Nucleotides: 361
Base pairs, nucleotide, nucleotide: 001357002356003355004354005353006352007351008350009349010348012326013325014324015323016322017321018320020034021033022032023031024030025029039344040343041342043341044340045339046338047337048206049205050204051203055260056259057258058257060202061201062200063199064198065079066078067077068076069075080094081092082091083090084089095197096196100195101194102191103190104189117136118135119132120131121130122129123128144162145161146160147159148158149157164186165184166183167182168181169180170179171178172177210282211281212280213279220272222270223269225267252264253263254262255261289308290307291306292305293304294303295302296301
Number, partner (000 for none) and nucleotide at each position: 001357c002356g003355a004354g005353u006352c007351g008350g009349c010348c011000a012326g013325a014324u015323g016322a017321u018320c019000g020034c021033g022032g023031c024030c025029c026000c027000a028000a029025g030024g031023g032022c033021u034020g035000a036000g037000g038000a039344a040343a041342g042000u043341c044340c045339g046338g047337g048206c049205u050204c051203c052000a053000c054000a055260g056259g057258g058257c059000a060202c061201g062200g063199u064198g065079g066078u067077g068076g069075g070000u071000a072000a073000c074000g075069c076068c077067c078066a079065c080094c081092c082091g083090g084089g085000g086000u087000g088000a089084c090083c091082c092081g093000c094080g095197g096196g097000a098000c099000a100195g101194u102191g103190c104189c105000a106000c107000a108000g109000a110000a111000a112000g113000c114000a115000g116000a117136c118135c119132g120131c121130c122129u123128g124000g125000c126000g127000a128123c129122a130121g131120g132119u133000a134000a135118g136117g137000g138000u139000g140000a141000a142000a143000c144162g145161g146160u147159g148158g149157u150000g151000c152000a153000a154000g155000a156000g157149a158148c159147c160146a161145c162144c163000a164186g165184c166183g167182c168181c169180c170179c171178g172177g173000g174000u175000g176000a177172c178171c179170g180169g181168g182167g183166c184165g185000g186164c187000u188000a189104g190103g191102c192000a193000a194101a195100c196096c197095c198064c199063a200062c201061c202060g203051g204050g205049a206048g207000c208000a209000a210282g211281a212280c213279c214000a215000a216000g217000a218000a219000g220272g221000u222270c223269a224000g225267c226000c227000a228000c229000g230000g231000c232000u233000g234000a235000c236000c237000g238000c239000g240000g241000a242000c243000a244000c245000c246000g247000u248000c249000c250000g251000a252264g253263g254262g255261c256000u257058g258057c259056c260055c261255g262254c263253c264252c265000g266000a267225g268000g269223u270222g271000u272220c273000c274000g275000g276000g277000u278000a279213g280212g281211u282210c283000g284000c285000a286000a287000g288000a289308g290307c291306g292305g293304c294303g295302c296301g297000g298000c299000a300000a301296c302295g303294c304293g305292u306291c307290g308289c309000c310000u311000c312000a313000g314000a315000u316000a317000g318000a319000u320018g321017a322016u323015c324014a325013u326012c327000c328000u329000c330000g331000a332000c333000a334000g335000a336000a337047c338046c339045c340044g341043g342041c343040u344039u345000a346000c347000c348010g349009g350008c351007c352006g353005g354004c355003u356002c357001g358000u359000c360000c361000c